[Rfam]
RNA sequence: UUCAGAGACAAAGGUUUGUUUACGAAGCUGACUAAGUGGCCACCGUGCCGCAGUGUCUCGACACUACUGCUUCGGGGAAAGUCUCCGGCCGCGAUAACGGAAACGUAGCGGAAUUUAAAACCCGUUCACACUCUGUCGGGGCCCAUCUCGCUGGGUAUGUCUAAGUUCUGCACUGAAGGUCUUUUGCUGGAUAGUCGUCAGGCCGUUUUCUUGUAACUCCCUUCUCCUGCUAACCCCUUUUGGGUCUUGUUGGCUUCAUGUCAAUGGCAUAGUGAGGGCUUUGAAAAUAUGCCUGGCAGACAUUCUGCACAAGAGUUUUUUUGCAUAAGGGACUUUGGCGUAUUCAGUUGGGCUUGGGGUUCCUUGACUUUGUGUUCCCUUGGUUCUUCAUGGAGGAUUGAGGUUUCUUUCGGCAAUGGGAUUGUGAAUCCUAAACGAUAGUUAUAGCAAACGGCCACCGUAUCGGGUGGCUAACACAAUGGAGCUCACUCUUGUCUCUGG
Number, nucleotide and partner (000 for none) at each position: 001u000002u501003c500004a499005g498006a497007g496008a495009c494010a493011a492012a000013g000014g452015u451016u450017u449018g448019u447020u000021u000022a000023c074024g073025a072026a071027g070028c069029u000030g000031a000032c000033u000034a000035a000036g051037u050038g049039g048040c047041c000042a000043c000044c000045g000046u000047g040048c039049c038050g037051c036052a000053g000054u000055g000056u000057c000058u000059c000060g000061a000062c000063a000064c000065u000066a000067c000068u000069g028070c027071u026072u025073c024074g023075g000076g000077g000078a000079a000080a486081g485082u000083c484084u483085c482086c481087g000088g000089c000090c000091g000092c000093g000094a000095u000096a000097a106098c105099g104100g000101a000102a000103a000104c099105g098106u097107a000108g000109c000110g000111g000112a000113a000114u000115u000116u000117a000118a000119a000120a000121c000122c000123c000124g000125u000126u000127c000128a000129c000130a000131c000132u000133c000134u000135g000136u000137c000138g000139g000140g000141g000142c000143c000144c000145a000146u000147c000148u000149c000150g000151c000152u000153g000154g000155g000156u000157a000158u000159g000160u000161c000162u000163a000164a000165g000166u000167u000168c000169u000170g000171c000172a000173c000174u000175g000176a000177a000178g000179g000180u000181c000182u000183u000184u000185u000186g000187c000188u000189g000190g000191a000192u000193a000194g000195u000196c000197g000198u000199c000200a000201g000202g000203c000204c000205g000206u000207u000208u000209u000210c000211u000212u000213g000214u000215a000216a000217c000218u000219c000220c000221c000222u000223u000224c000225u000226c000227c000228u000229g000230c000231u000232a000233a000234c000235c000236c000237c000238u000239u000240u000241u000242g000243g000244g000245u000246c000247u000248u000249g000250u000251u000252g000253g000254c000255u000256u000257c000258a000259u000260g000261u000262c000263a000264a000265u000266g000267g000268c000269a000270u000271a000272g000273u000274g000275a000276g000277g000278g000279c000280u000281u000282u000283g000284a000285a000286a000287a000288u000289a000290u000291g000292c000293c000294u000295g000296g000297c000298a000299g000300a000301c000302a000303u000304u000305c000306u000307g000308c000309a000310c000311a000312a000313g000314a000315g000316u000317u000318u000319u000320u000321u000322u000323g000324c000325a000326u000327a000328a000329g000330g000331g000332a000333c000334u000335u000336u000337g000338g000339c000340g000341u000342a000343u000344u000345c000346a000347g000348u000349u000350g000351g000352g000353c000354u000355u000356g000357g000358g000359g000360u000361u000362c000363c000364u000365u000366g000367a000368c000369u000370u000371u000372g000373u000374g000375u000376u000377c000378c000379c000380u000381u000382g423383g422384u421385u000386c000387u000388u419389c418390a417391u416392g000393g414394a000395g411396g410397a000398u000399u000400g000401a000402g000403g000404u000405u000406u000407c000408u000409u000410u396411c395412g000413g000414c393415a000416a391417u390418g389419g388420g000421a384422u383423u382424g000425u000426g000427a000428a000429u000430c000431c000432u000433a000434a000435a000436c000437g000438a000439u000440a000441g000442u000443u000444a000445u000446a000447g019448c018449a017450a016451a015452c014453g000454g471455c470456c469457a468458c467459c466460g000461u000462a000463u000464c000465g000466g459467g458468u457469g456470g455471c454472u000473a000474a000475c000476a000477c000478a000479a000480u000481g086482g085483a084484g083485c081486u080487c000488a000489c000490u000491c000492u011493u010494g009495u008496c007497u006498c005499u004500g003501g002
RNase MRP: a 501-nucleotide RNA from Metschnikowia bicuspidata. On this family, see Schmitt et al., FASEB J 1993: "Secondary structure of RNase MRP RNA as predicted by phylogenetic comparison". The base pairs follow the family's consensus structure, which is taken from published work. Rfam classes the family as a ribozyme. Gene Ontology terms of the family: ribonuclease MRP complex, rRNA processing and ribonuclease MRP activity. The organism belongs to Metschnikowia bicuspidata var. bicuspidata, within Eukaryota. It scores 95 bits against the family's covariance model. Rfam describes the family as follows. RNase MRP is an enzymatically active ribonucleoprotein with two distinct roles in eukaryotes. In mitochondria it plays a direct role in the initiation of mitochondrial DNA replication. In the nucleus it is involved in precursor rRNA processing, where it cleaves the internal transcribed spacer 1 between 18S and 5.8S rRNAs. Despite distinct functions, RNase MRP has been shown to be evolutionarily related to RNase P. Like eukaryotic RNase P, RNase MRP is not catalytically active without associated protein subunits.